[Rfam]
Rfam assigns this 127-nucleotide sequence from Phtheirospermum japonicum to the family "Plant small nucleolar RNA R71". The family's RNA type in Rfam is C/D-box small nucleolar RNA.
RNA sequence: AACCGAUGAUGGGGGCAUUUGGUGAGAUAGCCCUUGAAUUGCUCCCACGCCUCGUAGAAGGUCUCGUCGCUCGCUUGACGGAACGAGGCGAUCUUUGCUCAAAAAUUGGCCAUUUUAUCUUGAGAAU
Numbered sequence: 001a002a003c004c005g006a007u008g009a010u011g012g013g014g015g016c017a018u019u020u021g022g023u024g025a026g027a028u029a030g031c032c033c034u035u036g037a038a039u040u041g042c043u044c045c046c047a048c049g050c051c052u053c054g055u056a057g058a059a060g061g062u063c064u065c066g067u068c069g070c071u072c073g074c075u076u077g078a079c080g081g082a083a084c085g086a087g088g089c090g091a092u093c094u095u096u097g098c099u100c101a102a103a104a105a106u107u108g109g110c111c112a113u114u115u116u117a118u119c120u121u122g123a124g125a126a127u
Stems, first nucleotide, its partner, number of pairs: 001127001004124001006121001057095002060092001

Pairs were carried over by alignment from the consensus structure, which was predicted with PFOLD. Its family is annotated with RNA processing and nucleolus in the Gene Ontology. The literature on the family includes a 2003 paper in Trends Plant Sci by Brown et al., "Plant snoRNAs: functional evolution and new modes of gene expression". NCBI's taxonomy places the organism under Eukaryota, Spermatophyta, Gunneridae, lamiids, Phtheirospermum.